This 87-nucleotide sequence from Romanomermis culicivorax belongs to the Rfam family "mir-10 microRNA precursor family". Pairs were carried over by alignment from the consensus structure, which was predicted with PFOLD. NCBI's taxonomy places the organism under Eukaryota, Metazoa, Ecdysozoa, Enoplea, Romanomermis. The match comes from Rfam's covariance-model search (53 bits). A reference for the family is Lee and Ambros (2001), "An extensive class of small RNAs in Caenorhabditis elegans", Science.
RNA sequence: CUCCAAUAAACCCGUAGAUCCGAACUUGUGUCAAAAAAAGCAGCUUUGGCGCCAAAGCACAAGCUCGUGUCUGGGGUAGAUUGUGGC
Numbered sequence: 001c002u003c004c005a006a007u008a009a010a011c012c013c014g015u016a017g018a019u020c021c022g023a024a025c026u027u028g029u030g031u032c033a034a035a036a037a038a039a040g041c042a043g044c045u046u047u048g049g050c051g052c053c054a055a056a057g058c059a060c061a062a063g064c065u066c067g068u069g070u071c072u073g074g075g076g077u078a079g080a081u082u083g084u085g086g087c
Base pairs, nucleotide, nucleotide: 002085004083005082006081007080010077011076012075016072017071018070019069021067022066023065025063026062027061028060029059030058